MIR1120/MIR1122 microRNA precursor family: an 87-nucleotide RNA sequence from Triticum turgidum. It scores 88 bits against the family's covariance model. On this family, see Yao et al., Genome Biol 2007: "Cloning and characterization of microRNAs from wheat (Triticum aestivum L.)". Pairs were carried over by alignment from the consensus structure, which was predicted with RNAalifold.
RNA sequence: AUACUCCCUCCGUCUCACAAUAUAAGAACGUUUUUGACACUAAAUUAGUGUAAAAAACGUUCUUAUAUUAUGGGAUGGAGUGAAUAU
Numbered sequence: 001a002u003a004c005u006c007c008c009u010c011c012g013u014c015u016c017a018c019a020a021u022a023u024a025a026g027a028a029c030g031u032u033u034u035u036g037a038c039a040c041u042a043a044a045u046u047a048g049u050g051u052a053a054a055a056a057a058c059g060u061u062c063u064u065a066u067a068u069u070a071u072g073g074g075a076u077g078g079a080g081u082g083a084a085u086a087u
Stems, first nucleotide, its partner, number of pairs: 003085001005083001008080004013075005019069017037051005

Taxonomically the source falls in Triticum turgidum (Eukaryota, Streptophyta, Euphyllophyta, Triticeae). The family has 6 seed sequences and 44,765 matches in Rfam 15.1.